[Rfam]
RNA sequence: AACUUAUCAAGAGUGAUUGAGGGAACGGGCCCUAUGAAAUCCAGCAACCAGUACAUUAUGUGUAUAAUGGUGCUAAAUCCUGCAGCGAAAGCUGAAAGAUGAGAG
Numbered sequence: 001a002a003c004u005u006a007u008c009a010a011g012a013g014u015g016a017u018u019g020a021g022g023g024a025a026c027g028g029g030c031c032c033u034a035u036g037a038a039a040u041c042c043a044g045c046a047a048c049c050a051g052u053a054c055a056u057u058a059u060g061u062g063u064a065u066a067a068u069g070g071u072g073c074u075a076a077a078u079c080c081u082g083c084a085g086c087g088a089a090a091g092c093u094g095a096a097a098g099a100u101g102a103g104a105g
Base pairs, nucleotide, nucleotide: 003103004102005101006100007099008098013042015041016040017039021032022031023030026082027081028080029079043074044073045072046071048070049069051065052064053063078097083094084093085092086091

Shown here is a 105-nucleotide sequence from Clostridium ljungdahlii, a member of the family "SAM riboswitch aptamer (S box leader)". The base pairs follow the family's consensus structure, which is taken from published work. Its family is annotated with regulation of gene expression in the Gene Ontology.